[Rfam]
The family of this 134-nucleotide sequence from Chinchilla lanigera is "Small nucleolar RNA SNORA1".
The family's RNA type in Rfam is H/ACA-box small nucleolar RNA.
The family has 29 seed sequences and 1,282 matches in Rfam 15.1.
From the family's description: ACA1 is a member of the H/ACA class of snoRNA that guide the sites of modification of uridines to pseudouridines.
RNA sequence: AGCCUCAUUCUAGAUUAGAACGGGCAUUGUUGAAUGGUGUCCAAAAUUGGUCAAUAUGGUUAAAAUUGAGACAGAGGUCAUGCUUCCAUCAUAGUAAACAUAUUACAGUGGUGACCAUGAGACCUGUAAUAUUU
Numbered sequence: 001a002g003c004c005u006c007a008u009u010c011u012a013g014a015u016u017a018g019a020a021c022g023g024g025c026a027u028u029g030u031u032g033a034a035u036g037g038u039g040u041c042c043a044a045a046a047u048u049g050g051u052c053a054a055u056a057u058g059g060u061u062a063a064a065a066u067u068g069a070g071a072c073a074g075a076g077g078u079c080a081u082g083c084u085u086c087c088a089u090c091a092u093a094g095u096a097a098a099c100a101u102a103u104u105a106c107a108g109u110g111g112u113g114a115c116c117a118u119g120a121g122a123c124c125u126g127u128a129a130u131a132u133u134u
Stems, first nucleotide, its partner, number of pairs: 002060003007055002022042006073127001075125003087113006